[Rfam]
RNA sequence: GCAUCACAGGUCUGUGGCUGAAAAUCGAUGGCAGUCGCAGCCAAAACGAUCCACGUAACGCAGAAAAAAUUUCUGCUGAGCAUGGUGCGGUUUAGAAGUAAGUCCUGCCGGUAAACCGAGAGGGUUAGUAGUGAGAGUGAGAGGGAACACCGGGUAGCGAAAGCUCCAGCAGGCGAGUGUGGGGUCAAAAGCCAGGUCAGCUGUGGAUGC
Numbered sequence: 001g002c003a004u005c006a007c008a009g010g011u012c013u014g015u016g017g018c019u020g021a022a023a024a025u026c027g028a029u030g031g032c033a034g035u036c037g038c039a040g041c042c043a044a045a046a047c048g049a050u051c052c053a054c055g056u057a058a059c060g061c062a063g064a065a066a067a068a069a070u071u072u073c074u075g076c077u078g079a080g081c082a083u084g085g086u087g088c089g090g091u092u093u094a095g096a097a098g099u100a101a102g103u104c105c106u107g108c109c110g111g112u113a114a115a116c117c118g119a120g121a122g123g124g125u126u127a128g129u130a131g132u133g134a135g136a137g138u139g140a141g142a143g144g145g146a147a148c149a150c151c152g153g154g155u156a157g158c159g160a161a162a163g164c165u166c167c168a169g170c171a172g173g174c175g176a177g178u179g180u181g182g183g184g185u186c187a188a189a190a191g192c193c194a195g196g197u198c199a200g201c202u203g204u205g206g207a208u209g210c
Base pairs, nucleotide, nucleotide: 001210002209003208004207005206006204007203008202009201012200013199014198015194016193017192018191019190028180029179030178031041033092034091035090036089037088038087039086050085051084058077063072064071083187104173105172106171107170108169109118110117111116122166123165124164125163131158132157138149139148
The record is a 210-nucleotide RNA, which matches "raiA RNA" in Rfam.
It is one of the family's seed sequences.
The family's consensus secondary structure is taken from published work.